[Rfam]
RNA: Rickettsia sRNA 10
Organism: Rickettsia felis
RNA sequence: UUUUAGAAAUGAAAAAAUGGACUUUUGACGAGGCUAAAGAAAUCUUUAGCUUUUCGUUUAUGGAGCUGGUCUAUCAAGCUCAAACAAUACAUCGUGCUAAUUUUGAUCCUAAUAAGAUCCAAAUCAGCAGCCUCUUAAGCAUUAAAACAGGUAGUUGUCCUGAAAAUUGUAAAUUCUGUCCUCAAUCUUCUCACUAUAAAACUUAUGUAAAAAAAGAGCCUUUAAUGCAAAUUGAGGAUGUAAUUACGGCAGCAAAACGUGCUAAAGCAGCAGGUAGUACUCGCUUUUGUAUGGGAGCUGCGUGGCGUGGUCCACGUGAUGAGGAUUUAAAACUGGUUUGCGAGAUGAUUAAGG
Numbered sequence: 001u002u003u004u005a006g007a008a009a010u011g012a013a014a015a016a017a018u019g020g021a022c023u024u025u026u027g028a029c030g031a032g033g034c035u036a037a038a039g040a041a042a043u044c045u046u047u048a049g050c051u052u053u054u055c056g057u058u059u060a061u062g063g064a065g066c067u068g069g070u071c072u073a074u075c076a077a078g079c080u081c082a083a084a085c086a087a088u089a090c091a092u093c094g095u096g097c098u099a100a101u102u103u104u105g106a107u108c109c110u111a112a113u114a115a116g117a118u119c120c121a122a123a124u125c126a127g128c129a130g131c132c133u134c135u136u137a138a139g140c141a142u143u144a145a146a147a148c149a150g151g152u153a154g155u156u157g158u159c160c161u162g163a164a165a166a167u168u169g170u171a172a173a174u175u176c177u178g179u180c181c182u183c184a185a186u187c188u189u190c191u192c193a194c195u196a197u198a199a200a201a202c203u204u205a206u207g208u209a210a211a212a213a214a215a216g217a218g219c220c221u222u223u224a225a226u227g228c229a230a231a232u233u234g235a236g237g238a239u240g241u242a243a244u245u246a247c248g249g250c251a252g253c254a255a256a257a258c259g260u261g262c263u264a265a266a267g268c269a270g271c272a273g274g275u276a277g278u279a280c281u282c283g284c285u286u287u288u289g290u291a292u293g294g295g296a297g298c299u300g301c302g303u304g305g306c307g308u309g310g311u312c313c314a315c316g317u318g319a320u321g322a323g324g325a326u327u328u329a330a331a332a333c334u335g336g337u338u339u340g341c342g343a344g345a346u347g348a349u350u351a352a353g354g
Stems, first nucleotide, its partner, number of pairs: 022342001024340001027338003031334001033333001035331001038328003053310002056306002061302002064299004085162002089158003097150002101147007108139001111135001118129001182225001184223002190216001195209004229287003233283004241276002244273002249268002311325003315321002